[Rfam]
RNA sequence: UGCUCAUCCAGAGGGACUGAGGGAACGGCCCUGAGAAGUCCCGGCAACCGCCGCGAACUCCCGUGAAGACCAGCGCAACUGGGAUCCACGUCGCGGAAGUGGUGCCAAAUCCGACCCGCGCGAGAGUCGCCGGGACAGAUGAGAA
Numbered sequence: 001u002g003c004u005c006a007u008c009c010a011g012a013g014g015g016a017c018u019g020a021g022g023g024a025a026c027g028g029c030c031c032u033g034a035g036a037a038g039u040c041c042c043g044g045c046a047a048c049c050g051c052c053g054c055g056a057a058c059u060c061c062c063g064u065g066a067a068g069a070c071c072a073g074c075g076c077a078a079c080u081g082g083g084a085u086c087c088a089c090g091u092c093g094c095g096g097a098a099g100u101g102g103u104g105c106c107a108a109a110u111c112c113g114a115c116c117c118g119c120g121c122g123a124g125a126g127u128c129g130c131c132g133g134g135a136c137a138g139a140u141g142a143g144a145a
Stems, first nucleotide, its partner, number of pairs: 001145001003143006013042005021031003026113003043106004048102002051096006110137001115134004
SAM riboswitch aptamer (S box leader): a 145-nucleotide sequence from Nocardioides caeni.